[Rfam]
The family of this 112-nucleotide RNA from Fictibacillus macauensis is "BsrF". Taxonomically the source falls in Fictibacillus macauensis (Bacteria, Bacillati, Bacilli, Fictibacillaceae).

RNA sequence: GCGAUGAGCUUAGAUGCAUAAGACGAGAUUGACGCGCCUUUUAGGCAAAGCACAAAUGUGGAGUGCUGUCUCUCGCCGCAUUACGCAGAGACGUCCGAUUCAUUCGGACGUC
Numbered sequence: 001g002c003g004a005u006g007a008g009c010u011u012a013g014a015u016g017c018a019u020a021a022g023a024c025g026a027g028a029u030u031g032a033c034g035c036g037c038c039u040u041u042u043a044g045g046c047a048a049a050g051c052a053c054a055a056a057u058g059u060g061g062a063g064u065g066c067u068g069u070c071u072c073u074c075g076c077c078g079c080a081u082u083a084c085g086c087a088g089a090g091a092c093g094u095c096c097g098a099u100u101c102a103u104u105c106g107g108a109c110g111u112c
Stems, first nucleotide, its partner, number of pairs: 014081004024075005031070003036046002049067002052064002090112009
The match comes from Rfam's covariance-model search (86 bits). A reference for the family is Saito et al. (2008), "Novel small RNA-encoding genes in the intergenic regions of Bacillus subtilis", Gene.